[Rfam]
RNA sequence: UCUCAAGGCCCUGUCUCCCAACCCUUGUACCAGUGCUGUGCCUCAGACCCUGGUACAGGCCUGGGGGACAGGGACUUGGGG
Numbered sequence: 001u002c003u004c005a006a007g008g009c010c011c012u013g014u015c016u017c018c019c020a021a022c023c024c025u026u027g028u029a030c031c032a033g034u035g036c037u038g039u040g041c042c043u044c045a046g047a048c049c050c051u052g053g054u055a056c057a058g059g060c061c062u063g064g065g066g067g068a069c070a071g072g073g074a075c076u077u078g079g080g081g
Stems, first nucleotide, its partner, number of pairs: 010072003014068005022059002026057007